Shown here is a 126-nucleotide RNA sequence from Enterococcus rivorum, a member of the family "Ribosomal protein L10 leader".

[Rfam]
RNA sequence: GGUUAAUAAUUAACUGUACCGAAGACAGUAGGUGACGUAAGUCUUAAUUUCCUACCGAGGACAAUAUUGAUAACAGUCAAUAGUCCCUCUAUGUCAACGGUGGCAUGGAGUUUGUUUGUUUUGUAA
Number, nucleotide and partner (000 for none) at each position: 001g000002g000003u000004u000005a000006a000007u000008a000009a000010u000011u000012a000013a000014c000015u000016g000017u000018a000019c000020c000021g000022a000023a000024g000025a000026c000027a000028g055029u054030a053031g052032g051033u000034g043035a042036c041037g000038u000039a000040a000041g036042u035043c034044u000045u000046a000047a000048u000049u000050u000051c032052c031053u030054a029055c028056c000057g000058a000059g000060g000061a000062c000063a000064a000065u000066a000067u000068u000069g000070a000071u000072a000073a000074c000075a000076g000077u000078c000079a000080a000081u000082a000083g000084u000085c000086c000087c110088u109089c108090u107091a106092u105093g104094u103095c102096a000097a000098c000099g000100g000101u000102g095103g094104c093105a092106u091107g090108g089109a088110g087111u000112u000113u000114g000115u000116u000117u000118g000119u000120u000121u000122u000123g000124u000125a000126a000
Rfam links the family to the GO term regulation of gene expression. The family's consensus secondary structure was predicted with CMfinder. On this family, see Yakhnin et al., Nucleic Acids Res 2015: "Ribosomal protein L10(L12)4 autoregulates expression of the Bacillus subtilis rplJL operon by a transcription attenuation mechanism". By type it is a cis-regulatory leader. The source organism's lineage runs through Bacteria, Bacillati, Bacillota, Bacilli and Enterococcus.